[Rfam]
RNA sequence: AUACCCAGGGAAGCUCAGAAAUAUAAGAGAAUGAACCCUAUGUCGGCACUAGGUGGAUAAAACCUCGCUAGCCAGUCGGGAUAGGGCACUCUCUAUCAGAAUGGAUGUCUUGUCACUACAAUAGAUAGAGAAGGUUGUAGUGGACUAUAGAUUGCUUAGUUGAAAAUUAUUGUUGAUCAUGUAUAGUGUUGGAGCAGGUGAAAGAUGUGCGUACAUAAGUGACGACACGUGCCCAUGUGGAAGAGCCAGCAUGUUAAGUGAUCAGUAAUAGAUUAGUAAAUGGAUGAAGGUAAUCAUGGCCAAUUGGAAGAAUAAC
Numbered sequence: 001a002u003a004c005c006c007a008g009g010g011a012a013g014c015u016c017a018g019a020a021a022u023a024u025a026a027g028a029g030a031a032u033g034a035a036c037c038c039u040a041u042g043u044c045g046g047c048a049c050u051a052g053g054u055g056g057a058u059a060a061a062a063c064c065u066c067g068c069u070a071g072c073c074a075g076u077c078g079g080g081a082u083a084g085g086g087c088a089c090u091c092u093c094u095a096u097c098a099g100a101a102u103g104g105a106u107g108u109c110u111u112g113u114c115a116c117u118a119c120a121a122u123a124g125a126u127a128g129a130g131a132a133g134g135u136u137g138u139a140g141u142g143g144a145c146u147a148u149a150g151a152u153u154g155c156u157u158a159g160u161u162g163a164a165a166a167u168u169a170u171u172g173u174u175g176a177u178c179a180u181g182u183a184u185a186g187u188g189u190u191g192g193a194g195c196a197g198g199u200g201a202a203a204g205a206u207g208u209g210c211g212u213a214c215a216u217a218a219g220u221g222a223c224g225a226c227a228c229g230u231g232c233c234c235a236u237g238u239g240g241a242a243g244a245g246c247c248a249g250c251a252u253g254u255u256a257a258g259u260g261a262u263c264a265g266u267a268a269u270a271g272a273u274u275a276g277u278a279a280a281u282g283g284a285u286g287a288a289g290g291u292a293a294u295c296a297u298g299g300c301c302a303a304u305u306g307g308a309a310g311a312a313u314a315a316c
Base pairs, nucleotide, nucleotide: 026094027093028092029091030090032088033087036086037085038084039083040082041081043079044078045077046076049071050070051069052068055065056064105313106312108311109310110309111308113143114142115141116140117139118138119137120136121135122134150295151294152293153292154291155290156289157288160279161278162277165274166273169269170268171267186252187251188250189249190248191247192246205230206229207228208227209226210224211223212222232240233239300307301306